The family of this 49-nucleotide RNA sequence from Lactobacillus johnsonii is "Na+ riboswitch aptamer (DUF1646)". Rfam's curators put it in the seed alignment. Lineage of the source: Bacteria > Bacillati > Bacilli > Lactobacillus > Lactobacillus johnsonii.

RNA sequence: GGUUGGGUUUUAAAAAACUUUCAAGAUUUGCUUAUUUGGGUCAAUAAGC
Numbered sequence: 001g002g003u004u005g006g007g008u009u010u011u012a013a014a015a016a017a018c019u020u021u022c023a024a025g026a027u028u029u030g031c032u033u034a035u036u037u038g039g040g041u042c043a044a045u046a047a048g049c
Base pairs, nucleotide, nucleotide: 003024004023005022006019007018008017009016010015030049031048032047033046034045035044036043